This 99-nucleotide RNA sequence from Weissella cibaria belongs to the Rfam family "Purine riboswitch aptamer". Rfam links the family to the GO term purine nucleobase biosynthetic process.

RNA sequence: AAAUAUGACGUAAUCACUAUCGGUAUAAUUGCUGGAGAAUGGCCAGCGAGUUCCUACCUGUUUCCCGAGAGACAGACUACUGAUAGUGUUUUAAACGAU
Numbered sequence: 001a002a003a004u005a006u007g008a009c010g011u012a013a014u015c016a017c018u019a020u021c022g023g024u025a026u027a028a029u030u031g032c033u034g035g036a037g038a039a040u041g042g043c044c045a046g047c048g049a050g051u052u053c054c055u056a057c058c059u060g061u062u063u064c065c066c067g068a069g070a071g072a073c074a075g076a077c078u079a080c081u082g083a084u085a086g087u088g089u090u091u092u093a094a095a096c097g098a099u
Stems, first nucleotide, its partner, number of pairs: 018085008029049007058075007
The organism belongs to Weissella, within Bacteria. The base pairs follow the family's consensus structure, which is taken from published work.